[Rfam]
RNA sequence: AUUAUUAUUCUCGCUAUUCUAAGGAAUGGGCGGGUUAGCUAGUGCGUAAAUAGAAUUCACUAAACCCGCCGCAAAGGCGGGUUUU
Numbered sequence: 001a002u003u004a005u006u007a008u009u010c011u012c013g014c015u016a017u018u019c020u021a022a023g024g025a026a027u028g029g030g031c032g033g034g035u036u037a038g039c040u041a042g043u044g045c046g047u048a049a050a051u052a053g054a055a056u057u058c059a060c061u062a063a064a065c066c067c068g069c070c071g072c073a074a075a076g077g078c079g080g081g082u083u084u085u
Base pairs, nucleotide, nucleotide: 011033012032013031014030015029016027017026062084063083064082065081066080067079068078069077070076
Rfam assigns this 85-nucleotide RNA sequence from Alteromonas sp. V450 to the family "Pseudomonas sRNA P9". For this family Rfam cites "Identification of 17 Pseudomonas aeruginosa sRNAs and prediction of sRNA-encoding genes in 10 diverse pathogens using the bioinformatic tool sRNAPredict2" (Livny et al., Nucleic Acids Res, 2006). The organism belongs to Alteromonas, within Bacteria. This small RNA (sRNA) was computationally identified in the genome of the opportunistic pathogen Pseudomonas aeruginosa and its expression verified by northern blot analysis. P9 appears to be conserved in several Pseudomonas species in addition to Bordetella spp. In both Pseudomonas and Bordetella spp P9 appears to be located upstream of a predicted threonine dehydratase gene. P9 has a predicted Rho independent terminator at the 3' end but the function of P9 is unknown. This sRNA also appears to be present in the Betaproteobacteria (Burkholderia and Ralstonia species).